[Rfam]
RNA sequence: CCGGUUCCGGUUCACGUCCGCAUGAUCAGUCGGGCGACCCGGGGCA
Numbered sequence: 001c002c003g004g005u006u007c008c009g010g011u012u013c014a015c016g017u018c019c020g021c022a023u024g025a026u027c028a029g030u031c032g033g034g035c036g037a038c039c040c041g042g043g044g045c046a
Base pairs, nucleotide, nucleotide: 004045005044007042008041009040010039015036016035017034018033019032020031022030023029